A member of the RNA family "glmS glucosamine-6-phosphate activated ribozyme aptamer" from Jeotgalibaca sp. PTS2502, 158 nucleotides long.

RNA sequence: UAAUAAUGGAUAGCGCCAGGCUCAGUGAAAACUGAGUGACGAGGAUUGGGUUUAUCGAAAGUUUCGGCGGGUAGCCCAAGGUUUGUGUAGUCUACAGAAUGUCAUUUAAAAGAGAUCGCAUAAGCUGCCUUCUUACAAAGAUGCAUUCCCACACCCAG
Numbered sequence: 001u002a003a004u005a006a007u008g009g010a011u012a013g014c015g016c017c018a019g020g021c022u023c024a025g026u027g028a029a030a031a032c033u034g035a036g037u038g039a040c041g042a043g044g045a046u047u048g049g050g051u052u053u054a055u056c057g058a059a060a061g062u063u064u065c066g067g068c069g070g071g072u073a074g075c076c077c078a079a080g081g082u083u084u085g086u087g088u089a090g091u092c093u094a095c096a097g098a099a100u101g102u103c104a105u106u107u108a109a110a111a112g113a114g115a116u117c118g119c120a121u122a123a124g125c126u127g128c129c130u131u132c133u134u135a136c137a138a139a140g141a142u143g144c145a146u147u148c149c150c151a152c153a154c155c156c157a158g
Stems, first nucleotide, its partner, number of pairs: 020037007047078005055067004079093005097148006111133003
About the family: This entry contains a glucosamine-6-phosphate activated ribozyme that is found in the mRNA for GlmS. GlmS is an enzyme that uses fructose-6-phosphate and glutamine to generate glucosamine-6-phosphate.
The match comes from Rfam's covariance-model search (61 bits).
Pairs were carried over by alignment from the consensus structure, which is taken from published work.
The family's RNA type in Rfam is riboswitch.
Its family is annotated with regulation of gene expression and catalytic activity in the Gene Ontology.